Glycine riboswitch aptamer: a 63-nucleotide sequence from Pseudooceanicola algae. The organism belongs to Pseudooceanicola, within Bacteria.
RNA sequence: CUCUGGAGAGAGGCCCGGCAUGGGUCCGCCGAAGGGAUAGCGAUCUCAGGCCAAAGAACAGAG
Numbered sequence: 001c002u003c004u005g006g007a008g009a010g011a012g013g014c015c016c017g018g019c020a021u022g023g024g025u026c027c028g029c030c031g032a033a034g035g036g037a038u039a040g041c042g043a044u045c046u047c048a049g050g051c052c053a054a055a056g057a058a059c060a061g062a063g
Stems, first nucleotide, its partner, number of pairs: 001063005012026004028051003031047002035045002